[Rfam]
RNA sequence: CGAACGGGUCGAGGCAAGAUGUUGGCAUAGCUGAAUGAACAUAUUAAUUUUCAGCUGUGCUACAUAUGGCCAUGUCCCGAGUAG
Numbered sequence: 001c002g003a004a005c006g007g008g009u010c011g012a013g014g015c016a017a018g019a020u021g022u023u024g025g026c027a028u029a030g031c032u033g034a035a036u037g038a039a040c041a042u043a044u045u046a047a048u049u050u051u052c053a054g055c056u057g058u059g060c061u062a063c064a065u066a067u068g069g070c071c072a073u074g075u076c077c078c079g080a081g082u083a084g
Stems, first nucleotide, its partner, number of pairs: 005079004010074002013071003017067001019065003023062009
mir-31 microRNA precursor family: an 84-nucleotide RNA sequence from Dracunculus medinensis. The family has 75 seed sequences and 1,181 matches in Rfam 15.1. Clan: mir-31 microRNA precursor family.